[Rfam]
RNA sequence: UCGGGGCCAGCAGACUCCCGGCCAUCCCAAGGCGGUUCGCCGUCCAAGGUCUGC
Numbered sequence: 001u002c003g004g005g006g007c008c009a010g011c012a013g014a015c016u017c018c019c020g021g022c023c024a025u026c027c028c029a030a031g032g033c034g035g036u037u038c039g040c041c042g043u044c045c046a047a048g049g050u051c052u053g054c
Stems, first nucleotide, its partner, number of pairs: 001021006010054005031044005
Notes: chrB-b RNA: a 54-nucleotide RNA sequence. It is one of the family's seed sequences. Rfam classes the family as a cis-regulatory element.